[Rfam]
RNA sequence: GUUGAUGACAAGGGGAGCUUGUGUUGCAGGCUGAGAGGAAGCGUAAGACUUCGACCCAUAACCUGAUUUGGAUAAUGCCAACGUAGGAUAUGUCUAUACCGGUGUGC
Dot-bracket structure: ......((((.(((..(((((.....)))))......((((.......))))..)))....((((..((((......))))..))))...)))).............
Shown here is a 107-nucleotide RNA sequence from Lachnospiraceae bacterium 1_4_56FAA, a member of the family "TPP riboswitch aptamer (THI element)".